RNA: SAH (S-adenosyl-L-homocysteine) riboswitch aptamer
Organism: Steroidobacter denitrificans
RNA sequence: CGCGCUGAGGGGCGCUGCAGCAGGUCAGGAUUUUCCCGCCUGCCAGGCUCGGUGCGCACACUGCCAUCUACGGCAACGGCGCCCAUUCAUC
Numbered sequence: 001c002g003c004g005c006u007g008a009g010g011g012g013c014g015c016u017g018c019a020g021c022a023g024g025u026c027a028g029g030a031u032u033u034u035c036c037c038g039c040c041u042g043c044c045a046g047g048c049u050c051g052g053u054g055c056g057c058a059c060a061c062u063g064c065c066a067u068c069u070a071c072g073g074c075a076a077c078g079g080c081g082c083c084c085a086u087u088c089a090u091c
Base pairs, nucleotide, nucleotide: 002055003054004053005052006051007050008049021042022041023040024039025038